[Rfam]
RNA sequence: GUACGCCGUGCGGGAGAGCUCCGGAUUUCCACCAGAGAUUCGGACGCCGAAGGAGCAGCACCUCCCCGUCAAUCUCUCAGGCACCAGGGACCGUGCGGAUUCG
Numbered sequence: 001g002u003a004c005g006c007c008g009u010g011c012g013g014g015a016g017a018g019c020u021c022c023g024g025a026u027u028u029c030c031a032c033c034a035g036a037g038a039u040u041c042g043g044a045c046g047c048c049g050a051a052g053g054a055g056c057a058g059c060a061c062c063u064c065c066c067c068g069u070c071a072a073u074c075u076c077u078c079a080g081g082c083a084c085c086a087g088g089g090a091c092c093g094u095g096c097g098g099a100u101u102c103g
Stems, first nucleotide, its partner, number of pairs: 006098008020044008046082003049078002053076003060069002
Notes
A member of the RNA family "Glycine riboswitch aptamer" from Nocardia panacis, 103 nucleotides long. From the family's description: This family represents the bacterial glycine riboswitch. Taxonomically the source falls in Nocardia (Bacteria, Actinomycetota, Mycobacteriales, Nocardiaceae). Rfam links the family to the GO term glycine biosynthetic process.